[Rfam]
RNA: c-di-AMP riboswitch aptamer (ydaO/yuaA leader)
Organism: Actinomyces sp. oral taxon 448
RNA sequence: CCGUACCUAGAGCAUCAUCGGCAGGCCCGGGGGAACCACUUCUUCCGGUUCGGCGCCGCUCAUGCGGUUGGCCCGGACCUCGGGGUGAAGCCCGCACAGCGGGCCGGGCGUCUCCCGCCCGAACCCGACAGCUAACUCCGUCGGCUCACCAGGAGAUACCA
Numbered sequence: 001c002c003g004u005a006c007c008u009a010g011a012g013c014a015u016c017a018u019c020g021g022c023a024g025g026c027c028c029g030g031g032g033g034a035a036c037c038a039c040u041u042c043u044u045c046c047g048g049u050u051c052g053g054c055g056c057c058g059c060u061c062a063u064g065c066g067g068u069u070g071g072c073c074c075g076g077a078c079c080u081c082g083g084g085g086u087g088a089a090g091c092c093c094g095c096a097c098a099g100c101g102g103g104c105c106g107g108g109c110g111u112c113u114c115c116c117g118c119c120c121g122a123a124c125c126c127g128a129c130a131g132c133u134a135a136c137u138c139c140g141u142c143g144g145c146u147c148a149c150c151a152g153g154a155g156a157u158a159c160c161a
Stems, first nucleotide, its partner, number of pairs: 001144002007025002028140005037082001083126003091103004106120004